Notes
The family of this 101-nucleotide RNA sequence from Plutella xylostella is "mir-8517 microRNA precursor family". Pairs were carried over by alignment from the consensus structure, which was predicted with RNAalifold.
RNA sequence: UUACGCUUUAGCUAUUGAACUGUUUUGUCACUCUCUCAAAGAAGAAAUGGUUCUCUGUCAGAGAGUGACAGAACAGUUCAAUAGCUAAAGCGGCCAGUAAC
Numbered sequence: 001u002u003a004c005g006c007u008u009u010a011g012c013u014a015u016u017g018a019a020c021u022g023u024u025u026u027g028u029c030a031c032u033c034u035c036u037c038a039a040a041g042a043a044g045a046a047a048u049g050g051u052u053c054u055c056u057g058u059c060a061g062a063g064a065g066u067g068a069c070a071g072a073a074c075a076g077u078u079c080a081a082u083a084g085c086u087a088a089a090g091c092g093g094c095c096a097g098u099a100a101c
Stems, first nucleotide, its partner, number of pairs: 006090018024062004029057002044052002

The match comes from Rfam's covariance-model search (75 bits).